[Rfam]
RNA: mir-132 microRNA precursor family
RNA sequence: GUGCGUCGGCACCUUGGCUCUAGACUGCUUACUGCUAAGUGCUACGACAGGAACAGUAACAGUCUACAGUCAUGGCUACUGAAGUCUG
Numbered sequence: 001g002u003g004c005g006u007c008g009g010c011a012c013c014u015u016g017g018c019u020c021u022a023g024a025c026u027g028c029u030u031a032c033u034g035c036u037a038a039g040u041g042c043u044a045c046g047a048c049a050g051g052a053a054c055a056g057u058a059a060c061a062g063u064c065u066a067c068a069g070u071c072a073u074g075g076c077u078a079c080u081g082a083a084g085u086c087u088g
Base pairs, nucleotide, nucleotide: 012075013074015072016071017070018069023064024063025062026061027060029059030058031057032056033055